[Rfam]
RNA sequence: GGUCCCCACCAAAGCUGCGCCGACAGGCCAUGCGGGAGUGAGGGAGGCUUUACCUUCGGGUUCUGCCAUUCCUGCCACAUCUGGUGCCGGGCAUCGAUCCGACAGGGUAGUGCGCAUUGCGGCGCCGCCCGGGAUCGGAGGCACGGGGACGA
Numbered sequence: 001g002g003u004c005c006c007c008a009c010c011a012a013a014g015c016u017g018c019g020c021c022g023a024c025a026g027g028c029c030a031u032g033c034g035g036g037a038g039u040g041a042g043g044g045a046g047g048c049u050u051u052a053c054c055u056u057c058g059g060g061u062u063c064u065g066c067c068a069u070u071c072c073u074g075c076c077a078c079a080u081c082u083g084g085u086g087c088c089g090g091g092c093a094u095c096g097a098u099c100c101g102a103c104a105g106g107g108u109a110g111u112g113c114g115c116a117u118u119g120c121g122g123c124g125c126c127g128c129c130c131g132g133g134a135u136c137g138g139a140g141g142c143a144c145g146g147g148g149a150c151g152a
Stems, first nucleotide, its partner, number of pairs: 002150006014033002017031001019028003046067003052061003094138007105130004112125004

Rfam assigns this 152-nucleotide RNA sequence to the family "cold-seep-1 RNA". It is annotated as a small RNA. The family's consensus secondary structure is taken from published work.